The family of this 109-nucleotide RNA sequence from Terrihalobacillus insolitus is "SAM riboswitch aptamer (S box leader)".
About the family: The SAM riboswitch is found upstream of a number of genes which code for proteins involved in methionine or cysteine biosynthesis in Gram-positive bacteria.
The base pairs follow the family's consensus structure, which is taken from published work.
The organism belongs to Terrihalobacillus, within Bacteria.
[Rfam]
RNA sequence: UUCUUAUCAAGAGAGGUUGAGGGACUGACCCUGUGACACCUCGGCAACCGCAUGUUUAAUGUAUGGUGCCAAUUUCAGUGCGAAUGCUUGUGCAUUCCAAAGAUAAGAA
Numbered sequence: 001u002u003c004u005u006a007u008c009a010a011g012a013g014a015g016g017u018u019g020a021g022g023g024a025c026u027g028a029c030c031c032u033g034u035g036a037c038a039c040c041u042c043g044g045c046a047a048c049c050g051c052a053u054g055u056u057u058a059a060u061g062u063a064u065g066g067u068g069c070c071a072a073u074u075u076c077a078g079u080g081c082g083a084a085u086g087c088u089u090g091u092g093c094a095u096u097c098c099a100a101a102g103a104u105a106a107g108a109a
Stems, first nucleotide, its partner, number of pairs: 001109008013042005021031003025078004043070004048066002050062004074101001082097005